Annotation:
Shown here is a 262-nucleotide RNA from Mediterraneibacter torques, a member of the family "Bacterial large signal recognition particle RNA". The match comes from Rfam's covariance-model search (182 bits). NCBI's taxonomy places the organism under Bacteria, Bacillota, Clostridia, Lachnospirales, Mediterraneibacter. The family's consensus secondary structure is taken from published work. Rfam classes the family as a non-coding RNA gene.
[Rfam]
RNA sequence: CCGUGCAGCCGGGGUGGUAGCGGUACCUUGAACCUGCAAUCCGCUAUAGCAGGGGUGAUAUUGCGCAGAGGGCGACAGUCUGCAGGGCUGCCCCCGGAAAGUGACGUUGACGUCUGGGUCUCACGCGACGGGACUCUGUGAACCGUGUCAGGUCGGGAACGGAGCAGCACUAAGCAGAACCUCUCGGGUGCCGUGAGGGUGCCUGGGCUGAGUUAACUACCGGGGUAACGCUUGUGGGCCAAGUUCGAAGCGCAAUGCACGU
Numbered sequence: 001c002c003g004u005g006c007a008g009c010c011g012g013g014g015u016g017g018u019a020g021c022g023g024u025a026c027c028u029u030g031a032a033c034c035u036g037c038a039a040u041c042c043g044c045u046a047u048a049g050c051a052g053g054g055g056u057g058a059u060a061u062u063g064c065g066c067a068g069a070g071g072g073c074g075a076c077a078g079u080c081u082g083c084a085g086g087g088c089u090g091c092c093c094c095c096g097g098a099a100a101g102u103g104a105c106g107u108u109g110a111c112g113u114c115u116g117g118g119u120c121u122c123a124c125g126c127g128a129c130g131g132g133a134c135u136c137u138g139u140g141a142a143c144c145g146u147g148u149c150a151g152g153u154c155g156g157g158a159a160c161g162g163a164g165c166a167g168c169a170c171u172a173a174g175c176a177g178a179a180c181c182u183c184u185c186g187g188g189u190g191c192c193g194u195g196a197g198g199g200u201g202c203c204u205g206g207g208c209u210g211a212g213u214u215a216a217c218u219a220c221c222g223g224g225g226u227a228a229c230g231c232u233u234g235u236g237g238g239c240c241a242a243g244u245u246c247g248a249a250g251c252g253c254a255a256u257g258c259a260c261g262u
Base pairs, nucleotide, nucleotide: 002261003260004259005258006257007256008056009055010054011029012028013027014026015025016024018022033053034052035051036050037049061255062254063253064252065251066250070246071245072244073243078239079238080237081236082235083234084233085232086231089227090226093224094223095222096221097220101217102216103214104213105212112208113207114206115205116204117203118202119201120197121196122195123194124193125192126188129186130185131184132183133182135178136177137176138175139174145170146169147168148167153162154161155160